[Rfam]
Description:
A member of the RNA family "mir-5890 microRNA precursor family" from Haemonchus contortus, 78 nucleotides long. Rfam 15.1 lists 40 matches to the family in 2 species.

RNA sequence: UUUAUGCGGCAGCAUAGGACCGAAUUGUGGGAGAACUUCUAUGAUUCUACCCCUUUUCAUUUUUAUGCUGCUCUGGAG
Dot-bracket structure: .......((((((((((((..(((..(.((((((((......).)))).))))..)))..))))))))))))......
The family's consensus secondary structure was predicted with RNAalifold. The sequence is in the family's curated seed alignment.